[Rfam]
RNA sequence: AAUCUAAACUCGAAAGUAAAGGUAUUUCCGGGCAUGAUUCCAUAAUCCGUCGAAGAUAAAAACCCUCUCGUUCAGGGUUCCUUCGACGGUCACAGCCGGAAACGGUUGUGUUCGGGCCGCAAGGUCCGAA
Numbered sequence: 001a002a003u004c005u006a007a008a009c010u011c012g013a014a015a016g017u018a019a020a021g022g023u024a025u026u027u028c029c030g031g032g033c034a035u036g037a038u039u040c041c042a043u044a045a046u047c048c049g050u051c052g053a054a055g056a057u058a059a060a061a062a063c064c065c066u067c068u069c070g071u072u073c074a075g076g077g078u079u080c081c082u083u084c085g086a087c088g089g090u091c092a093c094a095g096c097c098g099g100a101a102a103c104g105g106u107u108g109u110g111u112u113c114g115g116g117c118c119g120c121a122a123g124g125u126c127c128g129a130a
Stems, first nucleotide, its partner, number of pairs: 001039004009032004014027005047089009061079006091110008111130008
RNA: LOOT RNA